[Rfam]
The record is a 96-nucleotide RNA sequence from Aquilegia coerulea, which matches "MIR2275 microRNA precursor family" in Rfam. A search with the family's covariance model found it, with a score of 61 bits.
RNA sequence: AAGUUGAAUGUGAGAAUGGGAGGAAAUCGAACCUUUUGCGUUACUUUUUCUUUUCUAGAUCAGGUUCAAUUUUCUCCAAUAUCUCAUGUUCAGCCU
Numbered sequence: 001a002a003g004u005u006g007a008a009u010g011u012g013a014g015a016a017u018g019g020g021a022g023g024a025a026a027u028c029g030a031a032c033c034u035u036u037u038g039c040g041u042u043a044c045u046u047u048u049u050c051u052u053u054u055c056u057a058g059a060u061c062a063g064g065u066u067c068a069a070u071u072u073u074c075u076c077c078a079a080u081a082u083c084u085c086a087u088g089u090u091c092a093g094c095c096u
Stems, first nucleotide, its partner, number of pairs: 004093005011086004016080002019077003023073005029067002032064002